RNA sequence: GCCCUCCAGUUCCCUUUCCCAUUGGAUCUGAACACUGGUCGUGGUGGUCAAAAAGGAGGAAAAGUAAUGCUGAAGCUGGCCUCACAACUUUAUAGUCUGGUAUACAGCACGUGGGCUAGUUUCAAACAGGG
Numbered sequence: 001g002c003c004c005u006c007c008a009g010u011u012c013c014c015u016u017u018c019c020c021a022u023u024g025g026a027u028c029u030g031a032a033c034a035c036u037g038g039u040c041g042u043g044g045u046g047g048u049c050a051a052a053a054a055g056g057a058g059g060a061a062a063a064g065u066a067a068u069g070c071u072g073a074a075g076c077u078g079g080c081c082u083c084a085c086a087a088c089u090u091u092a093u094a095g096u097c098u099g100g101u102a103u104a105c106a107g108c109a110c111g112u113g114g115g116c117u118a119g120u121u122u123c124a125a126a127c128a129g130g131g
Base pairs, nucleotide, nucleotide: 003059004058005057006056007055019047020046021045022044023043025040026039027038028037076119077118078117079116080115081114082113091109093107
Dot-bracket structure: ..(((((...........(((((.((((........))))..))))).......)))))................(((((((........(.(.............).)...)))))))............